[Rfam]
RNA sequence: UCAAUCUGAGCGCUUAAUUCUUUCGAAAAGAAAGAAGCGGGGGAACCACUUUUGGGGUGAAUCCCCUUUGACCAAGAAAUCAAAUUGCAAGUUCUUGAUUAGAGGGGUAGGGUUACACUCUUCGACCCGAAUCCGACAGCUAACCUCGCCAGCGUUGUAAGAGGAGGU
Numbered sequence: 001u002c003a004a005u006c007u008g009a010g011c012g013c014u015u016a017a018u019u020c021u022u023u024c025g026a027a028a029a030g031a032a033a034g035a036a037g038c039g040g041g042g043g044a045a046c047c048a049c050u051u052u053u054g055g056g057g058u059g060a061a062u063c064c065c066c067u068u069u070g071a072c073c074a075a076g077a078a079a080u081c082a083a084a085u086u087g088c089a090a091g092u093u094c095u096u097g098a099u100u101a102g103a104g105g106g107g108u109a110g111g112g113u114u115a116c117a118c119u120c121u122u123c124g125a126c127c128c129g130a131a132u133c134c135g136a137c138a139g140c141u142a143a144c145c146u147c148g149c150c151a152g153c154g155u156u157g158u159a160a161g162a163g164g165a166g167g168u
Base pairs, nucleotide, nucleotide: 011154012153013152014151018036019035020034021033022032023031024030037149038148039147040146041145042144047054048053055134056133057132063107064106065105066104067103068102069101070100071099110128111127112126113125

Shown here is a 168-nucleotide sequence from Tepidanaerobacter syntrophicus, a member of the family "c-di-AMP riboswitch aptamer (ydaO/yuaA leader)". A reference for the family is Barrick et al. (2004), "New RNA motifs suggest an expanded scope for riboswitches in bacterial genetic control", Proc Natl Acad Sci U S A. Lineage of the source: Bacteria > Bacillota > Clostridia > Thermosediminibacterales > Tepidanaerobacter. Rfam links the family to the GO terms cyclic-di-AMP binding and regulation of gene expression.